[Rfam]
RNA sequence: GCGCAGGCCAUGCCUAGUGGUUACUUCGAGUUACAUGUCUUUCGCAACUUCGCACCACGGGCGCAAACCUGCGUUUUU
Dot-bracket structure: .((((((....((((.((((....(.(((....................))).))))))))).....)))))).....
Numbered sequence: 001g002c003g004c005a006g007g008c009c010a011u012g013c014c015u016a017g018u019g020g021u022u023a024c025u026u027c028g029a030g031u032u033a034c035a036u037g038u039c040u041u042u043c044g045c046a047a048c049u050u051c052g053c054a055c056c057a058c059g060g061g062c063g064c065a066a067a068c069c070u071g072c073g074u075u076u077u078u
Stems, first nucleotide, its partner, number of pairs: 002073006012062004017058004025054001027052003